Streptomyces RNA 3202: a 92-nucleotide sequence from Streptomyces sporangiiformans. About the family: Identified by deep sequencing of transcriptome at the end of exponential growth phase. Appears smaller on northern blot than sequencing transcript. This indicates processing step. Streptomyces specific.
[Rfam]
RNA sequence: CCAAGUCCCGACGCACUCCCCCCCAGCGCCGGGACUUUCCCCGGGCCGAGCUCCGGCGCCUCCCCCCCCUGGCGCCGGGGCUCGGCUCAUGA
Numbered sequence: 001c002c003a004a005g006u007c008c009c010g011a012c013g014c015a016c017u018c019c020c021c022c023c024c025a026g027c028g029c030c031g032g033g034a035c036u037u038u039c040c041c042c043g044g045g046c047c048g049a050g051c052u053c054c055g056g057c058g059c060c061u062c063c064c065c066c067c068c069c070u071g072g073c074g075c076c077g078g079g080g081c082u083c084g085g086c087u088c089a090u091g092a
Base pairs, nucleotide, nucleotide: 005035006034007033008032009031010030012028013027014026043088044087045086046085047084048083049082050081051080052079054077055076056075057074058073059072060071